[Rfam]
RNA sequence: UAACCUCUGAUAAAACCUAUGUAUGUUA
Numbered sequence: 001u002a003a004c005c006u007c008u009g010a011u012a013a014a015a016c017c018u019a020u021g022u023a024u025g026u027u028a
Stems, first nucleotide, its partner, number of pairs: 001028004008023001010020003
RNA: L19-Flavobacteria ribosomal protein leader
Organism: Aedes aegypti